[Rfam]
RNA sequence: AUAGGACAGUAUGUUCUUCCAGGACAGAACAUUCUUUGCUAUUUUGUACUGGAAGAACAUGCAAAACUAA
Dot-bracket structure: .(((....((((((((((((((.((((((((.....))...)))))).))))))))))))))....))).